[Rfam]
RNA: Small nucleolar RNA R66
Organism: Beta vulgaris
RNA sequence: UCCAAUGAUGGUUAAAAUCUUUGAGACCUGAGAUUUGUCUUUCUUUGAUGACAAAUUAACAAGCAUAAUUUUCUGAGGCC
Dot-bracket structure: .((...........................(((........))..)..............................))..